[Rfam]
RNA sequence: UAGUGAAUAAAUCCUGUUCGAAAUGAUGAUGCCUGCAUUAGUGGGUUAGGAAAAGUAGAACAGGUAUCACAG
Dot-bracket structure: (.((((......(((((((............(((((....)))))............)))))))..)))).)
Record summary:
A member of the RNA family "DUF3800-X RNA", 72 nucleotides long. By type it is a small RNA. The base pairs follow the family's consensus structure, which is taken from published work.